[Rfam]
RNA sequence: GUCAAGUUGCAGGGGAACCCGACUCGGCGCCGACGAUGCGUACUCGCAUGCGGCGCGCGGUGGAACGGGUUGAGAAAGGCAUGACACCUGACCCUUUGAACCUGUUGGUUAAUACCAUCGUAGGGAGGAACGAUUAUGAGCGU
Numbered sequence: 001g002u003c004a005a006g007u008u009g010c011a012g013g014g015g016a017a018c019c020c021g022a023c024u025c026g027g028c029g030c031c032g033a034c035g036a037u038g039c040g041u042a043c044u045c046g047c048a049u050g051c052g053g054c055g056c057g058c059g060g061u062g063g064a065a066c067g068g069g070u071u072g073a074g075a076a077a078g079g080c081a082u083g084a085c086a087c088c089u090g091a092c093c094c095u096u097u098g099a100a101c102c103u104g105u106u107g108g109u110u111a112a113u114a115c116c117a118u119c120g121u122a123g124g125g126a127g128g129a130a131c132g133a134u135u136a137u138g139a140g141c142g143u
Stems, first nucleotide, its partner, number of pairs: 006131003010127001011095004016089001017070005078088002101124004106117003